[Rfam]
RNA sequence: GGCAAGAGUAGAAGCGUUCAGCUUGCCGGCCUGUGCCGGCGCGGGUCAUUGCUCUUGAA
Numbered sequence: 001g002g003c004a005a006g007a008g009u010a011g012a013a014g015c016g017u018u019c020a021g022c023u024u025g026c027c028g029g030c031c032u033g034u035g036c037c038g039g040c041g042c043g044g045g046u047c048a049u050u051g052c053u054c055u056u057g058a059a
Base pairs, nucleotide, nucleotide: 005055006054007053008052009051010050015044019045021042022041025040026039027038028037029036
RNA: Xanthine riboswitch aptamer (NMT1 RNA)